[Rfam]
RNA sequence: CGGUCGGGAGGCUUCUGGUGGGACAGAGGCCGGGAAUUGAUCGUAACCCGCUCUCUCUGAUGGCUGCGCCGCUGGGGCCCGACAGCGCGCAUG
Numbered sequence: 001c002g003g004u005c006g007g008g009a010g011g012c013u014u015c016u017g018g019u020g021g022g023a024c025a026g027a028g029g030c031c032g033g034g035a036a037u038u039g040a041u042c043g044u045a046a047c048c049c050g051c052u053c054u055c056u057c058u059g060a061u062g063g064c065u066g067c068g069c070c071g072c073u074g075g076g077g078c079c080c081g082a083c084a085g086c087g088c089g090c091a092u093g
Stems, first nucleotide, its partner, number of pairs: 001043005010031008065093002068090002070087005

Background: Shown here is a 93-nucleotide RNA, a member of the family "Rhodo-rpoB RNA". Rfam classes the family as a cis-regulatory element. The base pairs follow the family's consensus structure, which is taken from published work.